Shown here is a 147-nucleotide RNA from Lactococcus cremoris, a member of the family "PyrR binding site". The literature on the family includes a 2001 paper in Nucleic Acids Res by Bonner et al., "Molecular recognition of pyr mRNA by the Bacillus subtilis attenuation regulatory protein PyrR". The base pairs follow the family's consensus structure, which is taken from published work. From the family's description: This family represents the PyrR binding site and terminator structure. This RNA structure is found upstream of a variety of genes involved in pyrimidine biosynthesis and transport. It scores 66 bits against the family's covariance model. The family's RNA type in Rfam is cis-regulatory element.
[Rfam]
RNA sequence: GUAACUUUUAAACUAGUCCAGAGAGGCUAGCAAGGUUGAAAUCAGGAAAAACUAAUUUUAUUUUACUGACAGGAUUUUCUGUCAGUAAAAAUGAACUUGUUUUGAUACUUUUUACACUUGCUAAGUCUCUUGGUAAGUGUUUUUUAU
Numbered sequence: 001g002u003a004a005c006u007u008u009u010a011a012a013c014u015a016g017u018c019c020a021g022a023g024a025g026g027c028u029a030g031c032a033a034g035g036u037u038g039a040a041a042u043c044a045g046g047a048a049a050a051a052c053u054a055a056u057u058u059u060a061u062u063u064u065a066c067u068g069a070c071a072g073g074a075u076u077u078u079c080u081g082u083c084a085g086u087a088a089a090a091a092u093g094a095a096c097u098u099g100u101u102u103u104g105a106u107a108c109u110u111u112u113u114a115c116a117c118u119u120g121c122u123a124a125g126u127c128u129c130u131u132g133g134u135a136a137g138u139g140u141u142u143u144u145u146a147u
Stems, first nucleotide, its partner, number of pairs: 003037006013030006061090013114140012